[Rfam]
RNA sequence: ACCCUUUAAUAGCCGAAUCAAUUUGAUGGAAACGAAUUGUCAAAUUGUACGGGGGACUUUUUAUGCCGAUUGCAAUUUCAUCGGCAGGGGUGAAUUUCGAUAUUCGAACAGGGUUACCUCGACCCGAACCCGUCAACUAACCUCGGAGGCAAUUCAUUGAGGAGGG
Numbered sequence: 001a002c003c004c005u006u007u008a009a010u011a012g013c014c015g016a017a018u019c020a021a022u023u024u025g026a027u028g029g030a031a032a033c034g035a036a037u038u039g040u041c042a043a044a045u046u047g048u049a050c051g052g053g054g055g056a057c058u059u060u061u062u063a064u065g066c067c068g069a070u071u072g073c074a075a076u077u078u079c080a081u082c083g084g085c086a087g088g089g090g091u092g093a094a095u096u097u098c099g100a101u102a103u104u105c106g107a108a109c110a111g112g113g114u115u116a117c118c119u120c121g122a123c124c125c126g127a128a129c130c131c132g133u134c135a136a137c138u139a140a141c142c143u144c145g146g147a148g149g150c151a152a153u154u155c156a157u158u159g160a161g162g163a164g165g166g
Stems, first nucleotide, its partner, number of pairs: 012150003019047011050145005059087002088131003096108004111125004
RNA: c-di-AMP riboswitch aptamer (ydaO/yuaA leader)
Organism: Effusibacillus lacus